[Rfam]
RNA sequence: CGUGUCAGUGAUGAUUCCAUGGUGAUAUGGCGUCAGGCAUGGCGCCCCGAACUGCAUGAGGAAAGGUCCCAUGCUGCCUUCCUUCUGACAACACG
Numbered sequence: 001c002g003u004g005u006c007a008g009u010g011a012u013g014a015u016u017c018c019a020u021g022g023u024g025a026u027a028u029g030g031c032g033u034c035a036g037g038c039a040u041g042g043c044g045c046c047c048c049g050a051a052c053u054g055c056a057u058g059a060g061g062a063a064a065g066g067u068c069c070c071a072u073g074c075u076g077c078c079u080u081c082c083u084u085c086u087g088a089c090a091a092c093a094c095g
Stems, first nucleotide, its partner, number of pairs: 001095005
A member of the RNA family "Small nucleolar RNA U83B" from Chanos chanos, 95 nucleotides long. The organism belongs to Chanos, within Eukaryota. The literature on the family includes a 2000 paper in Biochim Biophys Acta by Duga et al., "The intron-containing L3 ribosomal protein gene (RPL3): sequence analysis and identification of U43 and of two novel intronic small nucleolar RNAs". The family's RNA type in Rfam is C/D-box small nucleolar RNA. U83B belongs to the C/D family of snoRNAs. A search with the family's covariance model found it, with a score of 60 bits.